Record summary
The record is a 40-nucleotide RNA sequence from Marmota marmota, which matches "Iron response element I" in Rfam. Taxonomically the source falls in Marmota marmota (Eukaryota, Vertebrata, Sarcopterygii, Sciuridae).
[Rfam]
RNA sequence: GUGUGUCUUUCUUCAAAUUUCUCCUUUUGGAAGGACACAC
Numbered sequence: 001g002u003g004u005g006u007c008u009u010u011c012u013u014c015a016a017a018u019u020u021c022u023c024c025u026u027u028u029g030g031a032a033g034g035a036c037a038c039a040c
Stems, first nucleotide, its partner, number of pairs: 001040008010032001012031005